[Rfam]
RNA: COG3860 RNA
RNA sequence: GGGUCCGCAGUUCACCCAGUCGUCGCCGGCGCAUGCGCCACGCUAAACCUGUGA
Numbered sequence: 001g002g003g004u005c006c007g008c009a010g011u012u013c014a015c016c017c018a019g020u021c022g023u024c025g026c027c028g029g030c031g032c033a034u035g036c037g038c039c040a041c042g043c044u045a046a047a048c049c050u051g052u053g054a
Stems, first nucleotide, its partner, number of pairs: 001017004028039004